[Rfam]
RNA: Eukaryotic large subunit ribosomal RNA, nucleotides 2260 to 2852
Organism: Chondrus crispus
RNA sequence: CGGGGAAAGAAGACCCUGUUGAGCUUGACUCUAUUCUAAUUUUGUGAAGCAAGUUGGGAGGCGUAGCAUAGGUGGGAGCGCUUGCGCGUCCGUGAAAUACCACUACUCCCAGUCUUGCUUUACUUACUGGGUUGGUGUGGAUGAGUUUUACGACUCUAUUCUAGAACCAAUGUGCGUUUGUGCAGACCACAGCCCAGCACACAUUUAGGAGGGGAGUUUGGCUGGGGCGGCACAUCUUCUACAAGACAACGAAGGUGUCCAAAGAUGAGCUCAGUGAGAACAGAAAUCUCACGUAGCGCAAAAGGGUAAAAGCUCGUUUGAUUUUGAUUUUCAGUGCGAGUCGAAAACGCGAAAGCGUGGCCUAUCGAUCCUUUCACGAUUCGAGAUUUGAAGCGAGAGGUGUCAGAAAAGUUACCACAGGGAUAACUGGCUUGUGGCGGCCAAGCGUUCAUAGCGACGUCGCUUUUUGAUCCUUCGAUGUCGGCUCUUCCUAUCAUUGCGUAGCAGAAUACGCCAAGUGUCGGAUUGUUCACCCGCCAACAGGGAACGUGAGCUGGGUUUAGACCGUCGUGAGACAGGUUAGUUUUAUCCUA
Number, nucleotide and partner (000 for none) at each position: 001c000002g000003g592004g591005g590006a000007a587008a586009g000010a000011a000012g000013a000014c000015c421016c420017u419018g418019u000020u417021g416022a413023g412024c411025u410026u409027g000028a217029c216030u215031c214032u000033a000034u000035u209036c208037u207038a206039a205040u000041u203042u000043u000044g123045u122046g121047a120048a119049g118050c117051a116052a115053g114054u112055u111056g110057g109058g108059a107060g106061g000062c000063g000064u000065a000066g000067c000068a000069u000070a000071g104072g103073u102074g101075g100076g000077a000078g087079c086080g000081c000082u000083u000084g000085c000086g079087c078088g000089u000090c000091c000092g000093u000094g000095a000096a000097a000098u000099a000100c075101c074102a073103c072104u071105a000106c060107u059108c058109c057110c056111a055112g054113u000114c053115u052116u051117g050118c049119u048120u047121u046122a045123c044124u000125u000126a000127c197128u196129g195130g194131g193132u000133u000134g000135g000136u000137g190138u189139g188140g187141a000142u000143g000144a000145g154146u153147u000148u000149u000150a000151c000152g000153a146154c145155u000156c000157u000158a000159u000160u000161c000162u000163a000164g000165a000166a000167c000168c000169a000170a000171u184172g183173u182174g181175c180176g000177u000178u000179u000180g175181u174182g173183c172184a171185g000186a000187c140188c139189a138190c137191a000192g000193c131194c130195c129196a128197g127198c000199a000200c000201a000202c000203a041204u000205u039206u038207a037208g036209g035210a000211g000212g000213g000214g031215a030216g029217u028218u000219u000220g233221g231222c230223u229224g000225g000226g000227g000228c000229g223230g222231c221232a000233c220234a256235u255236c254237u253238u252239c251240u000241a000242c000243a000244a000245g000246a000247c000248a000249a000250c000251g239252a238253a237254g236255g235256u234257g000258u000259c360260c359261a000262a000263a000264g000265a317266u316267g315268a314269g313270c312271u000272c296273a000274g292275u291276g290277a289278g288279a287280a000281c000282a000283g000284a000285a000286a000287u279288c278289u277290c276291a275292c274293g000294u000295a000296g272297c000298g307299c306300a000301a000302a000303a000304g000305g000306g299307u298308a000309a000310a000311a000312g270313c269314u268315c267316g266317u265318u000319u000320g000321a000322u346323u345324u344325u343326g342327a341328u340329u339330u338331u000332c000333a000334g000335u000336g000337c000338g330339a329340g328341u327342c326343g325344a324345a323346a322347a000348c357349g356350c355351g000352a000353a000354a000355g350356c349357g348358u000359g260360g259361c000362c000363u000364a000365u000366c000367g000368a000369u000370c000371c399372u398373u397374u396375c395376a000377c000378g000379a000380u392381u391382c390383g000384a000385g000386a000387u000388u000389u000390g382391a381392a380393g000394c000395g375396a374397g373398a372399g371400g000401u000402g000403u000404c000405a000406g000407a000408a000409a026410a025411g024412u023413u022414a000415c000416c021417a020418c018419a017420g016421g015422g000423a000424u000425a000426a000427c000428u000429g000430g471431c000432u469433u000434g468435u000436g464437g463438c462439g461440g460441c459442c000443a000444a000445g455446c454447g000448u000449u000450c000451a000452u000453a000454g446455c445456g000457a000458c000459g441460u440461c439462g438463c437464u436465u000466u000467u000468u434469g432470a000471u430472c000473c000474u000475u000476c000477g000478a000479u000480g000481u000482c557483g555484g554485c553486u552487c549488u546489u545490c544491c543492u542493a000494u000495c520496a519497u000498u000499g514500c513501g512502u511503a510504g000505c000506a000507g000508a000509a000510u503511a502512c501513g500514c499515c000516a000517a000518g000519u496520g495521u000522c536523g535524g534525a000526u532527u000528g000529u000530u000531c000532a526533c000534c524535c523536g522537c000538c000539a000540a000541c000542a492543g491544g490545g489546a488547a000548c000549g487550u000551g000552a486553g485554c484555u483556g000557g482558g000559u000560u000561u000562a000563g581564a580565c579566c578567g576568u575569c574570g000571u000572g000573a000574g569575a568576c567577a000578g566579g565580u564581u563582a000583g000584u000585u000586u008587u007588a000589u000590c005591c004592u003593a000